Description
The family of this 73-nucleotide sequence from Xenopus tropicalis is "mir-148/mir-152 microRNA precursor family". The base pairs follow the family's consensus structure, which was predicted with RNAalifold. The sequence is in the family's curated seed alignment.

RNA sequence: UUAAAUCAAAGUUCUGUGACACUUAGACUCUGAAUAUGAUAGCAGUCAGUGCACUACAGAACUUUGUUUUGGG
Number, nucleotide and partner (000 for none) at each position: 001u000002u000003a000004a069005a068006u000007c066008a065009a064010a063011g062012u061013u060014c059015u058016g057017u000018g000019a000020c051021a050022c049023u048024u000025a000026g047027a046028c045029u044030c000031u000032g000033a000034a000035u000036a000037u000038g000039a000040u000041a000042g000043c000044a029045g028046u027047c026048a023049g022050u021051g020052c000053a000054c000055u000056a000057c016058a015059g014060a013061a012062c011063u010064u009065u008066g007067u000068u005069u004070u000071g000072g000073g000